[Rfam]
RNA sequence: UAGAAAUUUUUCGAUAUAGAACACUCAUGUCGAUAAAAUGCUUUGAAUCCUUU
Number, nucleotide and partner (000 for none) at each position: 001u000002a000003g000004a000005a000006a000007u000008u000009u000010u000011u033012c032013g031014a030015u029016a028017u027018a000019g000020a000021a000022c000023a000024c000025u000026c000027a017028u016029g015030u014031c013032g012033a011034u000035a000036a000037a000038a000039u000040g000041c000042u000043u000044u000045g000046a000047a000048u000049c000050c000051u000052u000053u000